A member of the RNA family "tRNA" from Leptolinea tardivitalis, 73 nucleotides long. The organism belongs to Leptolinea, within Bacteria. It is annotated as a transfer RNA. Transfer RNA (tRNA) molecules are approximately 80 nucleotides in length. The family's consensus secondary structure is taken from published work. The match comes from Rfam's covariance-model search (65 bits).

RNA sequence: GGGCCCAUAGCGCAGUUGGGAGCGCGUCUCAAUGGCAUUGAGAAGGCCGAGAGUUCGAAUCUCUCUGGGUCCA
Numbered sequence: 001g002g003g004c005c006c007a008u009a010g011c012g013c014a015g016u017u018g019g020g021a022g023c024g025c026g027u028c029u030c031a032a033u034g035g036c037a038u039u040g041a042g043a044a045g046g047c048c049g050a051g052a053g054u055u056c057g058a059a060u061c062u063c064u065c066u067g068g069g070u071c072c073a
Stems, first nucleotide, its partner, number of pairs: 001072007010025004027043005049065005